[Rfam]
RNA sequence: GGUAUGAUUUUUUAACCCCACGAUAAGCCCCGGAAACUUAUUCGUGAUUGAAAUAUAUGAA
Number, nucleotide and partner (000 for none) at each position: 001g000002g000003u000004a000005u000006g000007a056008u055009u053010u052011u051012u050013u000014a000015a000016c000017c000018c000019c046020a045021c044022g042023a041024u040025a039026a038027g037028c000029c000030c000031c000032g000033g000034a000035a000036a000037c027038u026039u025040a024041u023042u022043c000044g021045u020046g019047a000048u000049u000050g012051a011052a010053a009054u000055a008056u007057a000058u000059g000060a000061a000

Rfam assigns this 61-nucleotide sequence from Bacillus methanolicus to the family "Ribosomal protein L13 leader". This family is a putative r-protein leader autoregulatory structure found in B. subtilis and other low-GC Gram-positive bacteria. It is located in the 5' untranslated regions of mRNAs encoding the L13-S9 (rplM-rpsI) ribosomal protein operon. Taxonomically the source falls in Bacillus methanolicus (Bacteria, Bacillota, Bacilli, Caryophanales). The family's RNA type in Rfam is cis-regulatory leader. The family's consensus secondary structure was predicted with CMfinder.